[Rfam]
RNA sequence: AUAAGAAUGUGAGGAGGAAGUUUAUUAGAGUGUCUCUUCAUUGAGGAAGAACAUUGAGGUAUAUUGAAGUCAAAGGCCAAGAUAUUGUUUCAGUCGUCAUUUUCAUAGAUUGACAAUUGAUUUACUCGUCCACAU
Numbered sequence: 001a002u003a004a005g006a007a008u009g010u011g012a013g014g015a016g017g018a019a020g021u022u023u024a025u026u027a028g029a030g031u032g033u034c035u036c037u038u039c040a041u042u043g044a045g046g047a048a049g050a051a052c053a054u055u056g057a058g059g060u061a062u063a064u065u066g067a068a069g070u071c072a073a074a075g076g077c078c079a080a081g082a083u084a085u086u087g088u089u090u091c092a093g094u095c096g097u098c099a100u101u102u103u104c105a106u107a108g109a110u111u112g113a114c115a116a117u118u119g120a121u122u123u124a125c126u127c128g129u130c131c132a133c134a135u
Base pairs, nucleotide, nucleotide: 006042007041008040009039011036012035013034014033016031075131076130078128080126081125084121085120086119087118093117094116096114097113098112099111101109102108
Shown here is a 135-nucleotide RNA sequence from Theobroma umbraticum, a member of the family "Small nucleolar RNA snoR111". On this family, see Marker et al., Curr Biol 2002: "Experimental RNomics: identification of 140 candidates for small non-messenger RNAs in the plant Arabidopsis thaliana". The match comes from Rfam's covariance-model search (56 bits). It is annotated as an H/ACA-box small nucleolar RNA. The source organism's lineage runs through Eukaryota, Streptophyta, Streptophytina, Pentapetalae and Theobroma.